[Rfam]
A member of the RNA family "Eukaryotic large subunit ribosomal RNA" from uncultured marine alveolate, 275 nucleotides of a longer RNA. The organism belongs to Alveolata, within Eukaryota. A reference for the family is Cannone et al. (2002), "The comparative RNA web (CRW) site: an online database of comparative sequence and structure information for ribosomal, intron, and other RNAs", BMC Bioinformatics.
RNA sequence: GAGUUCAUACGCAUGUGCGAGUAUGUGAACAACAACGUUCAUAUGCGAAAUGAAAGUGAAAGGUAGAAUGUAAGCUCUACCGACCGACUACAUUCUUCGGCGUGAAGUUCGAGUGUGAGCGCAUGUGUUGGGACCCGAAAGAUGGUGAACUAUGCCUGAACAGGGUGAAGCCAGGGGAAACCCUGGUGGAGGCUCGUAGCGAUACUGACGUGCAAAUCGUUCGUCUAAUUUGGGUAUAGGGGCGAAAGACUAAUCGAACCAUCUAGUAGCUGGUU
Numbered sequence: 001g002a003g004u005u006c007a008u009a010c011g012c013a014u015g016u017g018c019g020a021g022u023a024u025g026u027g028a029a030c031a032a033c034a035a036c037g038u039u040c041a042u043a044u045g046c047g048a049a050a051u052g053a054a055a056g057u058g059a060a061a062g063g064u065a066g067a068a069u070g071u072a073a074g075c076u077c078u079a080c081c082g083a084c085c086g087a088c089u090a091c092a093u094u095c096u097u098c099g100g101c102g103u104g105a106a107g108u109u110c111g112a113g114u115g116u117g118a119g120c121g122c123a124u125g126u127g128u129u130g131g132g133a134c135c136c137g138a139a140a141g142a143u144g145g146u147g148a149a150c151u152a153u154g155c156c157u158g159a160a161c162a163g164g165g166u167g168a169a170g171c172c173a174g175g176g177g178a179a180a181c182c183c184u185g186g187u188g189g190a191g192g193c194u195c196g197u198a199g200c201g202a203u204a205c206u207g208a209c210g211u212g213c214a215a216a217u218c219g220u221u222c223g224u225c226u227a228a229u230u231u232g233g234g235u236a237u238a239g240g241g242g243c244g245a246a247a248g249a250c251u252a253a254u255c256g257a258a259c260c261a262u263c264u265a266g267u268a269g270c271u272g273g274u275u
Stems, first nucleotide, its partner, number of pairs: 005131003009128010021046003026041005050057002062081005083114002085111003088107002095100001134273002137270001141263006150239011163195004170187007199224004204220002207218002241251002